RNA sequence: CGUCCUCGGCCGUGUUCGAUAGCGGAUUCUUACAUUUGCCCUGACCCUAAUUAACGACCCCGGGCUCGUUACUCCUUGUUGGUGUGCAUGUCCGCCCCGGUUGCGGAAAGCCCGAUGCGAGGUUCGCUGGCCCACCUGAUCCUUGGGAUCAAGGUCGUUUGGUCCGCAACGGCACGGCGGAGGACUC
Numbered sequence: 001c002g003u004c005c006u007c008g009g010c011c012g013u014g015u016u017c018g019a020u021a022g023c024g025g026a027u028u029c030u031u032a033c034a035u036u037u038g039c040c041c042u043g044a045c046c047c048u049a050a051u052u053a054a055c056g057a058c059c060c061c062g063g064g065c066u067c068g069u070u071a072c073u074c075c076u077u078g079u080u081g082g083u084g085u086g087c088a089u090g091u092c093c094g095c096c097c098c099g100g101u102u103g104c105g106g107a108a109a110g111c112c113c114g115a116u117g118c119g120a121g122g123u124u125c126g127c128u129g130g131c132c133c134a135c136c137u138g139a140u141c142c143u144u145g146g147g148a149u150c151a152a153g154g155u156c157g158u159u160u161g162g163u164c165c166g167c168a169a170c171g172g173c174a175c176g177g178c179g180g181a182g183g184a185c186u187c
Base pairs, nucleotide, nucleotide: 002185003184004183005182006181007180009178010177011176012175013174014173015172017171018170038155039154040153042151043150044149046147047146062133063132064131066129068127069126071124074122075121076120077119078118079117086111087110091107092106093105094104095103
A member of the RNA family "6S / SsrS RNA", 187 nucleotides long. The base pairs follow the family's consensus structure, which is taken from published work. It is one of the family's seed sequences. Rfam's curators write: E. coli 6S RNA was the first non coding RNA to be sequenced, but its function was unknown until recently. It consists of 184 nucleotides that fold into an extended hairpin structure with a large single-stranded internal bulge.